Notes: Rfam assigns this 189-nucleotide sequence from Alkalicoccus halolimnae to the family "Lysine riboswitch aptamer". For this family Rfam cites "Riboswitches Control Fundamental Biochemical Pathways in Bacillus subtilis and Other Bacteria" (Mandal et al., Cell, 2003).
RNA sequence: AGUGAGUUUAGAGGCGCACUGCUUAUUAUUAAACCUUUUGAGGGGAUGGAAGCCCCUUUGAUAAAGGCUGAAAGGAAGCCGUGCCGAAGCUGGGAAUUCUUCCUCUUAAUUCUCAGGCUGGGACUGUGUUGAACAAACACAGUACUGCCAUAUAGUUUAAAUCGAACUGUAUGGAGGGCUAUCUCACGC
Numbered sequence: 001a002g003u004g005a006g007u008u009u010a011g012a013g014g015c016g017c018a019c020u021g022c023u024u025a026u027u028a029u030u031a032a033a034c035c036u037u038u039u040g041a042g043g044g045g046a047u048g049g050a051a052g053c054c055c056c057u058u059u060g061a062u063a064a065a066g067g068c069u070g071a072a073a074g075g076a077a078g079c080c081g082u083g084c085c086g087a088a089g090c091u092g093g094g095a096a097u098u099c100u101u102c103c104u105c106u107u108a109a110u111u112c113u114c115a116g117g118c119u120g121g122g123a124c125u126g127u128g129u130u131g132a133a134c135a136a137a138c139a140c141a142g143u144a145c146u147g148c149c150a151u152a153u154a155g156u157u158u159a160a161a162u163c164g165a166a167c168u169g170u171a172u173g174g175a176g177g178g179c180u181a182u183c184u185c186a187c188g189c
Stems, first nucleotide, its partner, number of pairs: 006184001009181003016084004021079004032069001034067005088119003091115008120146002123143008148174009